[Rfam]
RNA sequence: CUGUGUGGUGGGCGUUCCGCUAUCGGGGCCCUCGUGGUUCCCGAGGAAACUCCUCAGACCGUUGGCAGAAAGUGCCGGGCGUUGAUGCCUAGGCCUCUUCCACAGCCGCAUCAUCACUAGGAAGCUUUGGCUGAGUGUGUGGAAGGAAGGGGUCCUUGUCAUAGCAAAGUAAUGCGGAAGCACCUGAUUGUGUAACAGAAUGGGGGUAACGUCCCGCCAGCGCC
Number, nucleotide and partner (000 for none) at each position: 001c000002u000003g223004u222005g221006u220007g000008g217009u216010g215011g214012g213013c000014g000015u179016u178017c177018c176019g175020c174021u000022a000023u044024c043025g042026g041027g040028g000029c000030c000031c000032u000033c000034g000035u000036g000037g000038u000039u000040c027041c026042c025043g024044a023045g000046g000047a000048a000049a207050c206051u000052c205053c204054u203055c202056a000057g000058a000059c000060c000061g000062u000063u000064g076065g075066c074067a073068g000069a000070a000071a000072g000073u067074g066075c065076c064077g090078g089079g088080c087081g086082u000083u000084g000085a000086u081087g080088c079089c078090u077091a000092g153093g000094c151095c000096u000097c149098u148099u147100c146101c145102a000103c000104a000105g000106c142107c141108g140109c139110a000111u000112c000113a000114u000115c137116a136117c135118u000119a000120g000121g000122a000123a000124g131125c130126u000127u000128u000129g000130g125131c124132u000133g000134a000135g117136u116137g115138u000139g109140u108141g107142g106143a000144a000145g101146g100147a099148a098149g097150g000151g094152g000153u092154c000155c000156u000157u000158g000159u000160c000161a000162u000163a000164g000165c000166a000167a000168a000169g000170u000171a000172a000173u000174g020175c019176g018177g017178a016179a015180g000181c192182a191183c190184c000185u000186g000187a000188u000189u000190g183191u182192g181193u000194a000195a000196c000197a000198g000199a000200a000201u000202g055203g054204g053205g052206g050207u049208a000209a000210c000211g000212u000213c012214c011215c010216g009217c008218c000219a000220g006221c005222g004223c003224c000
Shown here is a 224-nucleotide RNA from Penaeus vannamei, a member of the family "RNase MRP". The family has 66 seed sequences and 3,510 matches in Rfam 15.1. It is annotated as a ribozyme. The organism belongs to Penaeus, within Eukaryota. The base pairs follow the family's consensus structure, which is taken from published work. A reference for the family is Schmitt et al. (1993), "Secondary structure of RNase MRP RNA as predicted by phylogenetic comparison", FASEB J.